Group II catalytic intron D1-D4-4: a 138-nucleotide sequence from Pelotomaculum thermopropionicum. Group II introns are found in rRNA, tRNA and mRNA of organelles in fungi, plants and protists, and also in mRNA in bacteria.

RNA sequence: CAGCGGGUUGAAAUGUACCUGUCACGGUAAUUUCUCGUACACCGUGAAGUCGUCAGGCAGGCGUCUUCGGGGUGACCUAAGACGUCAAGCUGCCUGAAAAGGCCAAAAGGCCGAGACAGGAUGCAGGCCGUAGCGAAA
Numbered sequence: 001c002a003g004c005g006g007g008u009u010g011a012a013a014u015g016u017a018c019c020u021g022u023c024a025c026g027g028u029a030a031u032u033u034c035u036c037g038u039a040c041a042c043c044g045u046g047a048a049g050u051c052g053u054c055a056g057g058c059a060g061g062c063g064u065c066u067u068c069g070g071g072g073u074g075a076c077c078u079a080a081g082a083c084g085u086c087a088a089g090c091u092g093c094c095u096g097a098a099a100a101g102g103c104c105a106a107a108a109g110g111c112c113g114a115g116a117c118a119g120g121a122u123g124c125a126g127g128c129c130g131u132a133g134c135g136a137a138a
Stems, first nucleotide, its partner, number of pairs: 023046005055095005060086006069077001071076001101112003115131001

Taxonomically the source falls in Pelotomaculum thermopropionicum (Bacteria, Bacillota, Clostridia, Desulfotomaculaceae).
For this family Rfam cites "The ins and outs of group II introns" (Bonen and Vogel, Trends Genet, 2001).